The family of this 126-nucleotide RNA sequence from Melipona quadrifasciata is "U4atac minor spliceosomal RNA". Rfam's curators write: U4atac is an essential component of the minor U12-type spliceosome complex which is required for removal of the rarer class of eukaryotic introns (AT-AC, U12-type). The family is grouped with related families in Rfam's "U4 clan".
[Rfam]
RNA sequence: UCUAUCCUUGUCUUUGGGGAGCAAAGUAUUCAAUGAUCGUUUAGUGAGGAUACUGUUGCUAAAGCCCAUUAUAAUGUUAAACUCGCAUCCACGUACAUUUUGUCGUGAGAUGCAAUUUUUGUAAGC
Number, nucleotide and partner (000 for none) at each position: 001u000002c000003u000004a000005u019006c018007c017008u016009u000010g000011u000012c000013u000014u000015u000016g008017g007018g006019g005020a000021g059022c058023a057024a056025a054026g053027u052028a051029u050030u049031c048032a000033a000034u000035g000036a000037u000038c044039g000040u000041u000042u000043a000044g038045u000046g000047a000048g031049g030050a029051u028052a027053c026054u025055g000056u024057u023058g022059c021060u000061a000062a000063a000064g000065c000066c000067c000068a000069u000070u000071a000072u000073a000074a000075u000076g000077u000078u000079a000080a000081a000082c000083u000084c000085g113086c112087a111088u110089c109090c000091a106092c105093g104094u000095a103096c102097a000098u000099u000100u000101u000102g096103u095104c093105g092106u091107g000108a000109g089110a088111u087112g086113c085114a000115a000116u000117u000118u000119u000120u000121g000122u000123a000124a000125g000126c000